[Rfam]
RNA sequence: AUGAAAAUAAGGGGAGAGACUACAAAUGUAGCGCCGAAGGAGCAAACAAAGAUUAUUCUUGUGAAUCUCUCAGGCAAAAAGACUCUUAUUGGACG
Number, nucleotide and partner (000 for none) at each position: 001a000002u000003g000004a000005a000006a090007a089008u088009a087010a086011g085012g084013g083014g000015a000016g000017a000018g000019a000020c031021u030022a029023c028024a000025a000026a000027u000028g023029u022030a021031g020032c000033g075034c074035c073036g071037a070038a000039g000040g069041a068042g067043c000044a000045a000046a062047c061048a060049a059050a000051g000052a000053u000054u000055a000056u000057u000058c000059u049060u048061g047062u046063g000064a000065a000066u000067c042068u041069c040070u037071c036072a000073g035074g034075c033076a000077a000078a000079a000080a000081g000082a000083c013084u012085c011086u010087u009088a008089u007090u006091g000092g000093a000094c000095g000

The record is a 95-nucleotide sequence from Lottiidibacillus patelloidae, which matches "Glycine riboswitch aptamer" in Rfam.
The match comes from Rfam's covariance-model search (73 bits).
This family represents the bacterial glycine riboswitch.